[Rfam]
RNA sequence: UCAGGGUUAGCCGAAAACCUGUAAAAGAGUAGGUA
Numbered sequence: 001u002c003a004g005g006g007u008u009a010g011c012c013g014a015a016a017a018c019c020u021g022u023a024a025a026a027g028a029g030u031a032g033g034u035a
Stems, first nucleotide, its partner, number of pairs: 002021004010034003
The family of this 35-nucleotide RNA sequence from Pedobacter hiemivivus is "DUF805b RNA". Clan: DUF805 clan.